Small nucleolar RNA SNORD34: an 84-nucleotide RNA sequence from Ananas comosus. snoRNA U34 is found in intron 5 of the ribosomal protein L13a gene in humans. The base pairs follow the family's consensus structure, which was predicted with PFOLD. The match comes from Rfam's covariance-model search (46 bits). The family's RNA type in Rfam is C/D-box small nucleolar RNA. For this family Rfam cites "Purified box C/D snoRNPs are able to reproduce site-specific 2'-O-methylation of target RNA in vitro" (Galardi et al., Mol Cell Biol, 2002).
RNA sequence: CAAGGCCUGUGAUGAUCGACCAAUAUAUGCCUACAUUGUUUGAUAUAUUCAUGUGAUAAGAGUCUUCUGUUAUCUGAGGCCUUC
Numbered sequence: 001c002a003a004g005g006c007c008u009g010u011g012a013u014g015a016u017c018g019a020c021c022a023a024u025a026u027a028u029g030c031c032u033a034c035a036u037u038g039u040u041u042g043a044u045a046u047a048u049u050c051a052u053g054u055g056a057u058a059a060g061a062g063u064c065u066u067c068u069g070u071u072a073u074c075u076g077a078g079g080c081c082u083u084c
Stems, first nucleotide, its partner, number of pairs: 002083001004081004